The record is a 73-nucleotide RNA sequence from Muraenolepis orangiensis, which matches "Mammalian CPEB3 ribozyme" in Rfam.
It scores 51 bits against the family's covariance model.
Taxonomically the source falls in Muraenolepis (Eukaryota, Chordata, Euteleostomi, Eurypterygia).
[Rfam]
RNA sequence: CGGGGGGGAUCAUGGUAGAAGCACUCUGGUCGCGAUCCCUGUCAGGCUUUAAACCAAGCCUGUGAAUUCUACC
Numbered sequence: 001c002g003g004g005g006g007g008g009a010u011c012a013u014g015g016u017a018g019a020a021g022c023a024c025u026c027u028g029g030u031c032g033c034g035a036u037c038c039c040u041g042u043c044a045g046g047c048u049u050u051a052a053a054c055c056a057a058g059c060c061u062g063u064g065a066a067u068u069c070u071a072c073c
Base pairs, nucleotide, nucleotide: 006039007038008037009036010035011034014073015072016071017070018069019068020067021033022032043062044061045060046059047058048057049056